[Rfam]
RNA sequence: AAACUAGUCCCGAAUUGUCACCGUAUGGUGUGCGUGCUGUGAACACAGCUAGGGGCUGGUUUUGAC
Numbered sequence: 001a002a003a004c005u006a007g008u009c010c011c012g013a014a015u016u017g018u019c020a021c022c023g024u025a026u027g028g029u030g031u032g033c034g035u036g037c038u039g040u041g042a043a044c045a046c047a048g049c050u051a052g053g054g055g056c057u058g059g060u061u062u063u064g065a066c
Stems, first nucleotide, its partner, number of pairs: 001062011016034003019030004036049005
Dot-bracket structure: (((((((((((....(((((((....)))).))).(((((....)))))..)))))))))))....